[Rfam]
Rfam assigns this 83-nucleotide RNA from Brachybacterium phenoliresistens to the family "tRNA". It is annotated as a transfer RNA. NCBI's taxonomy places the organism under Bacteria, Bacillati, Actinomycetota, Actinomycetes, Brachybacterium.
Nucleotides: 083
Base pairs, nucleotide, nucleotide: 001082002081003080004079005078006077007076010025011024012023027043028042029041030040031039059075060074061073062072063071
Number, partner (000 for none) and nucleotide at each position: 001082g002081c003080c004079g005078g006077g007076u008000u009000g010025g011024c012023g013000g014000a015000a016000u017000g018000g019000u020000a021000g022000a023012c024011g025010c026000g027043g028042c029041g030040c031039a032000c033000u034000c035000a036000a037000a038000a039031u040030g041029c042028g043027c044000u045000g046000u047000c048000c049000g050000c051000a052000a053000g054000g055000g056000c057000g058000u059075g060074c061073g062072g063071g064000u065000u066000c067000g068000a069000g070000u071063c072062c073061c074060g075059c076007a077006c078005c079004c080003g081002g082001u083000a